The family of this 167-nucleotide RNA sequence from Effusibacillus dendaii is "Ribosomal protein L10 leader". Rfam links the family to the GO term regulation of gene expression. The source organism's lineage runs through Bacteria, Bacillota, Caryophanales, Alicyclobacillaceae and Effusibacillus. It is annotated as a cis-regulatory leader.
RNA sequence: AAAAACGGAAUCCCCAAACCGUAGACAGCAGGAGUGCAUAGCACUUAAUAUUUCCUGCCGAGGUUUUGAACGUGAUAAGUUCAUUUGGAUAUGUAGCGAGCUGCAUAUUCGAUUGAUUAAAAUGUUCAGAGUCCUCGUGUUUGCGGGGGCUCUUCUCGUUAUCCGGA
Numbered sequence: 001a002a003a004a005a006c007g008g009a010a011u012c013c014c015c016a017a018a019c020c021g022u023a024g025a026c027a028g029c030a031g032g033a034g035u036g037c038a039u040a041g042c043a044c045u046u047a048a049u050a051u052u053u054c055c056u057g058c059c060g061a062g063g064u065u066u067u068g069a070a071c072g073u074g075a076u077a078a079g080u081u082c083a084u085u086u087g088g089a090u091a092u093g094u095a096g097c098g099a100g101c102u103g104c105a106u107a108u109u110c111g112a113u114u115g116a117u118u119a120a121a122a123u124g125u126u127c128a129g130a131g132u133c134c135u136c137g138u139g140u141u142u143g144c145g146g147g148g149g150c151u152c153u154u155c156u157c158g159u160u161a162u163c164c165g166g167a
Stems, first nucleotide, its partner, number of pairs: 028058006034044003129152010